[Rfam]
RNA: MIR4371 microRNA precursor family
Organism: Glycine max
Nucleotides: 147
Stems, first nucleotide, its partner, number of pairs: 001145001003143015019127001021125007029117017049097004054092005059076005
Number, partner (000 for none) and nucleotide at each position: 001145u002000c003143a004142u005141u006140a007139a008138g009137u010136g011135a012134u013133g014132a015131c016130a017129u018000u019127g020000c021125a022124g023123a024122u025121g026120a027119a028000a029117u030116g031115u032114c033113a034112u035111g036110u037109c038108a039107u040106c041105a042104c043103g044102c045101c046000c047000a048000a049097u050096c051095a052094u053000u054092g055091a056090c057089a058088c059076g060075u061074c062073a063072u064000u065000g066000a067000a068000g069000g070000u071000g072063a073062u074061g075060a076059c077000a078000u079000g080000g081000c082000a083000a084000u085000g086000g087000g088058g089057u090056g091055u092054c093000u094052g095051u096050g097049a098000c099000a100000a101045g102044g103043u104042g105041u106040g107039a108038u109037g110036a111035c112034a113033u114032g115031g116030c117029a118000c119027u120026u121025c122024g123023u124022c125021u126000a127019c128000c129017a130016u131015g132014u133013c134012a135011u136010c137009a138008c139007u140006u141005a142004a143003u144000a145001g146000a147000a